[Rfam]
RNA: Plastid-rps18 3UTR RNA
RNA sequence: UGCAACUAUUUUACGAUUAAGAAGCAAUUGCUUCGUGUAUAGACUAUUAAUUAAAUU
Numbered sequence: 001u002g003c004a005a006c007u008a009u010u011u012u013a014c015g016a017u018u019a020a021g022a023a024g025c026a027a028u029u030g031c032u033u034c035g036u037g038u039a040u041a042g043a044c045u046a047u048u049a050a051u052u053a054a055a056u057u
Base pairs, nucleotide, nucleotide: 018037019036021034022033023032024031025030